The family of this 62-nucleotide RNA sequence from Anaerosalibacter massiliensis is "RAGATH-18 RNA".
RNA sequence: CCUUUGGAGUGCUAGAUCACUUGAGUAGGAUUAAUCCGAAAAAGAGUAUGAUGAUUAAGGAA
Numbered sequence: 001c002c003u004u005u006g007g008a009g010u011g012c013u014a015g016a017u018c019a020c021u022u023g024a025g026u027a028g029g030a031u032u033a034a035u036c037c038g039a040a041a042a043a044g045a046g047u048a049u050g051a052u053g054a055u056u057a058a059g060g061a062a
Stems, first nucleotide, its partner, number of pairs: 001060004009049005020044003028037003
By type it is a small RNA.